[Rfam]
RNA: ffh sRNA
RNA sequence: GAGGCUGGGGAUGUCCGCCGGUCAGCGAGGUUUCGCCCACCGGCGUCGUCGGC
Numbered sequence: 001g002a003g004g005c006u007g008g009g010g011a012u013g014u015c016c017g018c019c020g021g022u023c024a025g026c027g028a029g030g031u032u033u034c035g036c037c038c039a040c041c042g043g044c045g046u047c048g049u050c051g052g053c
Base pairs, nucleotide, nucleotide: 016045017044018043019042020041021040022039025036026035027034028033